[Rfam]
RNA: Small nucleolar RNA SNORD115
Organism: Phocoena sinus
Nucleotides: 081
Stems, first nucleotide, its partner, number of pairs: 001081004005075002008072001
Number, partner (000 for none) and nucleotide at each position: 001081g002080g003079g004078u005075c006074a007000g008072u009000u010000a011000u012000g013000a014000g015000a016000a017000c018000u019000c020000a021000u022000a023000u024000g025000g026000u027000c028000c029000u030000g031000a032000a033000g034000a035000g036000a037000g038000a039000u040000g041000a042000u043000g044000a045000c046000c047000u048000a049000a050000a051000a052000a053000u054000c055000a056000u057000g058000c059000u060000c061000a062000g063000u064000a065000g066000g067000a068000u069000u070000a071000c072008a073000c074006u075005g076000a077000u078004g079003c080002c081001c